[Rfam]
Annotation: The family of this 152-nucleotide RNA sequence from Massilimicrobiota sp. An134 is "glmS glucosamine-6-phosphate activated ribozyme aptamer". A reference for the family is Winkler et al. (2004), "Control of gene expression by a natural metabolite-responsive ribozyme", Nature. Gene Ontology terms of the family: catalytic activity and regulation of gene expression. By type it is a riboswitch.
RNA sequence: UACAAAAGAAAAGCGCCAGGACUUUAUACAUAUAAAGUUGACGAGGACCAGAUUUAUCGAAAGAUUCGGCGGAUGAUCUGGAGGUAUGAUGCUACCUGAACAAUGAGCAAAACUAAUGAGUGAUCAUUAAACAAAUAUCAUUAGGCAUCACU
Numbered sequence: 001u002a003c004a005a006a007a008g009a010a011a012a013g014c015g016c017c018a019g020g021a022c023u024u025u026a027u028a029c030a031u032a033u034a035a036a037g038u039u040g041a042c043g044a045g046g047a048c049c050a051g052a053u054u055u056a057u058c059g060a061a062a063g064a065u066u067c068g069g070c071g072g073a074u075g076a077u078c079u080g081g082a083g084g085u086a087u088g089a090u091g092c093u094a095c096c097u098g099a100a101c102a103a104u105g106a107g108c109a110a111a112a113c114u115a116a117u118g119a120g121u122g123a124u125c126a127u128u129a130a131a132c133a134a135a136u137a138u139c140a141u142u143a144g145g146c147a148u149c150a151c152u
Stems, first nucleotide, its partner, number of pairs: 020039008048081005057069004082097005101144001102142005114129006